[Rfam]
RNA sequence: CGACCAUCUAGAGCAGCCGAGAGACCUGGCUCAUCGACGUUGCAGCAACCUCCGCUUAGCGGUGCAGGUGCUUCCGCCAGGACCGAUGGAGG
Numbered sequence: 001c002g003a004c005c006a007u008c009u010a011g012a013g014c015a016g017c018c019g020a021g022a023g024a025c026c027u028g029g030c031u032c033a034u035c036g037a038c039g040u041u042g043c044a045g046c047a048a049c050c051u052c053c054g055c056u057u058a059g060c061g062g063u064g065c066a067g068g069u070g071c072u073u074c075c076g077c078c079a080g081g082a083c084c085g086a087u088g089g090a091g092g
Stems, first nucleotide, its partner, number of pairs: 001092001004089005013043005021032003026080004044072004049068002051064001053062001076084001
This 92-nucleotide sequence from Actinomyces massiliensis belongs to the Rfam family "SAM riboswitch aptamer (S box leader)". Its family is annotated with regulation of gene expression in the Gene Ontology.